The family of this 148-nucleotide RNA from Phocaeicola dorei is "Group II catalytic intron D1-D4-7". The source organism's lineage runs through Bacteria, Bacteroidales, Bacteroidaceae, Phocaeicola and Phocaeicola dorei. About the family: Group II introns are found in rRNA, tRNA and mRNA of organelles in fungi, plants and protists, and also in mRNA in bacteria. Pairs were carried over by alignment from the consensus structure. It is one of the family's seed sequences.
[Rfam]
RNA sequence: CCUGCUGUUUCGUCAGCAGUAGCCUACGGCAGGUGCAUAACCAGUAAUGGUCUUGUACUAAGCUGCUCGGACAAUGAAGCCCUUCCGAAAGGAGAAGUUUGAACCGUGAGGGGAAAGCAACUGCUAUUAGUGUCAUAUAGUAGGGGAG
Number, nucleotide and partner (000 for none) at each position: 001c000002c019003u018004g017005c016006u015007g014008u000009u000010u000011c000012g000013u000014c007015a006016g005017c004018a003019g002020u000021a000022g000023c000024c000025u000026a000027c000028g067029g066030c065031a064032g059033g058034u057035g056036c055037a054038u000039a000040a051041c050042c049043a048044g000045u000046a000047a000048u043049g042050g041051u040052c000053u000054u037055g036056u035057a034058c033059u032060a000061a000062g000063c000064u031065g030066c029067u028068c000069g000070g000071a000072c000073a000074a000075u000076g000077a000078a000079g000080c000081c000082c000083u094084u093085c092086c091087g000088a000089a000090a000091g086092g085093a084094g083095a000096a000097g118098u117099u000100u000101g000102a000103a000104c111105c110106g000107u000108g000109a000110g105111g104112g000113g000114a000115a000116a000117g098118c097119a000120a000121c000122u000123g141124c140125u139126a138127u137128u000129a000130g000131u000132g000133u000134c000135a000136u000137a127138u126139a125140g124141u123142a000143g000144g000145g000146g000147a000148g000